RNA sequence: UGCCUUUUGUGUUGCCCGUUCACUUUUGGCUGCUAGUGAAUGUGGUGUCAAAAAAGGCGCAAAUCAAAUCCGUGGCAGCCCUAUUUUCACUGGAUUCUAUUCCUGUGGUGUACUUGCUGCACAGGAACAUGG
Numbered sequence: 001u002g003c004c005u006u007u008u009g010u011g012u013u014g015c016c017c018g019u020u021c022a023c024u025u026u027u028g029g030c031u032g033c034u035a036g037u038g039a040a041u042g043u044g045g046u047g048u049c050a051a052a053a054a055a056g057g058c059g060c061a062a063a064u065c066a067a068a069u070c071c072g073u074g075g076c077a078g079c080c081c082u083a084u085u086u087u088c089a090c091u092g093g094a095u096u097c098u099a100u101u102c103c104u105g106u107g108g109u110g111u112a113c114u115u116g117c118u119g120c121a122c123a124g125g126a127a128c129a130u131g132g
Stems, first nucleotide, its partner, number of pairs: 002058006010050002013047004017042008070125002073123001075120005085112001087110001088108001092103002
RNA: Small nucleolar RNA SNORA13
Organism: Ornithorhynchus anatinus